[Rfam]
RNA sequence: GCUGCUCGAAACUUUGCACACCUCUUCGUGGUGAGCAGCAGGCAACACAUGAGAAUGUGGCGAAGAAUGCAAAG
Numbered sequence: 001g002c003u004g005c006u007c008g009a010a011a012c013u014u015u016g017c018a019c020a021c022c023u024c025u026u027c028g029u030g031g032u033g034a035g036c037a038g039c040a041g042g043c044a045a046c047a048c049a050u051g052a053g054a055a056u057g058u059g060g061c062g063a064a065g066a067a068u069g070c071a072a073a074g
Stems, first nucleotide, its partner, number of pairs: 001039007020032003046059005
Dot-bracket structure: (((((((............(((.......))))))))))......(((((....)))))...............
A member of the RNA family "HDV ribozyme from F. prausnitzii", 74 nucleotides long. The sequence is in the family's curated seed alignment.